[Rfam]
RNA sequence: GUAUUCUUUCUAAGACUGCCGAAGACAGCAGGUGCCGCAAGGCAUAAGGUUCAAAACGCCUGCCGAGGAGUAAAGAAUUUCGAUAGAAAUGAUUUAUGAACCUCUCUGUCACGCAGAGAGGUUUUUUGGCGGUACA
Dot-bracket structure: ...........................(((((((((....)))..............)))))).....................................(((((((((...)))))))))...............
RNA: Ribosomal protein L10 leader
Organism: Marvinbryantia formatexigens